RNA sequence: UAGAGAAGUCAAUGAUGGUGUUACCUAAUGUGUCUGAACCUGUCUGAAGCAUCUCAGUGAUGCCAUCUCUGUGUUCUGAGACUUCUCUGUCA
Numbered sequence: 001u002a003g004a005g006a007a008g009u010c011a012a013u014g015a016u017g018g019u020g021u022u023a024c025c026u027a028a029u030g031u032g033u034c035u036g037a038a039c040c041u042g043u044c045u046g047a048a049g050c051a052u053c054u055c056a057g058u059g060a061u062g063c064c065a066u067c068u069c070u071g072u073g074u075u076c077u078g079a080g081a082c083u084u085c086u087c088u089g090u091c092a
Base pairs, nucleotide, nucleotide: 004086005085006084007083008082009081010080

This 92-nucleotide sequence from Suricata suricatta belongs to the Rfam family "Small nucleolar RNA SNORD91 family". Rfam links the family to the GO terms RNA processing and nucleolus. The literature on the family includes a 2001 paper in EMBO J by Huttenhofer et al., "RNomics: an experimental approach that identifies 201 candidates for novel, small, non-messenger RNAs in mouse". A search with the family's covariance model found it, with a score of 96 bits.